Rfam assigns this 93-nucleotide RNA from Rhizobium etli to the family "Glycine riboswitch aptamer". The family is grouped with related families in Rfam's "Glycine riboswitch clan". From the family's description: This family represents the bacterial glycine riboswitch.
RNA sequence: CCAACCCUGUUGGGAGAAUCCGGUGCUUUCGCCACCGGUGCCGAAGGAGCAACCGCCCCGGAAACUCUCAGGCCAAAGGACCAGCAAGGGGCA
Numbered sequence: 001c002c003a004a005c006c007c008u009g010u011u012g013g014g015a016g017a018a019u020c021c022g023g024u025g026c027u028u029u030c031g032c033c034a035c036c037g038g039u040g041c042c043g044a045a046g047g048a049g050c051a052a053c054c055g056c057c058c059c060g061g062a063a064a065c066u067c068u069c070a071g072g073c074c075a076a077a078g079g080a081c082c083a084g085c086a087a088g089g090g091g092c093a
Stems, first nucleotide, its partner, number of pairs: 006088001008086006020038004040073003043069002047067003053061002